[Rfam]
RNA sequence: GGGCGAUGAUGAUUUCUAGGUCUCGUUCGUCGUAACGGCGAAUCUGCCUUGCCGACCAUCCUGAUAUAUCACCACCCAUAUUCUGAGUCC
Number, nucleotide and partner (000 for none) at each position: 001g090002g089003g088004c087005g000006a000007u000008g000009a000010u000011g000012a000013u000014u000015u000016c000017u000018a000019g000020g000021u000022c000023u000024c000025g000026u000027u000028c000029g000030u000031c000032g000033u000034a000035a000036c000037g000038g000039c000040g050041a049042a000043u000044c000045u000046g000047c000048c000049u041050u040051g000052c000053c000054g000055a000056c000057c000058a000059u000060c000061c000062u000063g000064a000065u000066a000067u000068a000069u000070c000071a000072c000073c000074a000075c000076c000077c000078a000079u000080a000081u000082u000083c000084u000085g000086a000087g004088u003089c002090c001
Notes
Shown here is a 90-nucleotide RNA sequence from Dendrobium nobile, a member of the family "Small nucleolar RNA Z43". A search with the family's covariance model found it, with a score of 95 bits. Its family is annotated with nucleolus and RNA processing in the Gene Ontology. For this family Rfam cites "The high diversity of snoRNAs in plants: identification and comparative study of 120 snoRNA genes from Oryza sativa" (Chen et al., Nucleic Acids Res, 2003). The family's consensus secondary structure was predicted with PFOLD.